[Rfam]
RNA sequence: UUAGAUCACUAGGGGUGCUAUUUAGCUGAGACGGAAAUGUGAUUCCAAACCCUUUGAACCUGAUCUGGAUUAUACCAGCGUAGGGAAGUGAGCUUGAACUUUG
Numbered sequence: 001u002u003a004g005a006u007c008a009c010u011a012g013g014g015g016u017g018c019u020a021u022u023u024a025g026c027u028g029a030g031a032c033g034g035a036a037a038u039g040u041g042a043u044u045c046c047a048a049a050c051c052c053u054u055u056g057a058a059c060c061u062g063a064u065c066u067g068g069a070u071u072a073u074a075c076c077a078g079c080g081u082a083g084g085g086a087a088g089u090g091a092g093c094u095u096g097a098a099c100u101u102u103g
Stems, first nucleotide, its partner, number of pairs: 006091005011053004016047001017026003033046004059084004065078004
Rfam assigns this 103-nucleotide RNA from Paenibacillus sp. IHBB 10380 to the family "TPP riboswitch aptamer (THI element)". The organism belongs to Paenibacillus, within Bacteria. The match comes from Rfam's covariance-model search (88 bits).